[Rfam]
Record summary
terC RNA: a 58-nucleotide RNA from Sphingorhabdus pulchriflava. It is annotated as a cis-regulatory element.
RNA sequence: CACUCAAUCCGGGCCCCUCUGGCGCAUGCGGCGGCAUGCGUGAUGUCGGAUUGUUCAU
Number, nucleotide and partner (000 for none) at each position: 001c000002a000003c000004u000005c000006a052007a051008u050009c049010c048011g047012g046013g000014c000015c000016c000017c000018u000019c000020u000021g000022g041023c040024g039025c038026a037027u036028g035029c034030g000031g000032c000033g000034g029035c028036a027037u026038g025039c024040g023041u022042g000043a000044u000045g000046u012047c011048g010049g009050a008051u007052u006053g000054u000055u000056c000057a000058u000